Shown here is a 209-nucleotide RNA from Streptococcus ictaluri, a member of the family "FasX small RNA". The organism belongs to Streptococcus ictaluri, within Bacteria.

[Rfam]
RNA sequence: GUAAAUAAAGAUCUACGAAAUCAUCAGUUUAUUAAGUGAUCAAUCCCCAAUUCAAUCAAAAUAUUGUUUUCUCUCUCUCUCCAUAAACAAAUAGUAUUUUUGAUAUGAUUGCUUUCUAUCCCCAAUGAUAAUUUCAGUUGUCUUUGUUUGGAUAUUACUUCACUGGUUAUUCAAUCAGUAAUCAUAAAACUCAGGAAACUGAGUUUUAU
Numbered sequence: 001g002u003a004a005a006u007a008a009a010g011a012u013c014u015a016c017g018a019a020a021u022c023a024u025c026a027g028u029u030u031a032u033u034a035a036g037u038g039a040u041c042a043a044u045c046c047c048c049a050a051u052u053c054a055a056u057c058a059a060a061a062u063a064u065u066g067u068u069u070u071c072u073c074u075c076u077c078u079c080u081c082c083a084u085a086a087a088c089a090a091a092u093a094g095u096a097u098u099u100u101u102g103a104u105a106u107g108a109u110u111g112c113u114u115u116c117u118a119u120c121c122c123c124a125a126u127g128a129u130a131a132u133u134u135c136a137g138u139u140g141u142c143u144u145u146g147u148u149u150g151g152a153u154a155u156u157a158c159u160u161c162a163c164u165g166g167u168u169a170u171u172c173a174a175u176c177a178g179u180a181a182u183c184a185u186a187a188a189a190c191u192c193a194g195g196a197a198a199c200u201g202a203g204u205u206u207u208a209u
Stems, first nucleotide, its partner, number of pairs: 002150011015134001017132001020129005027121001030118002034114009055104007062096008162179007186207009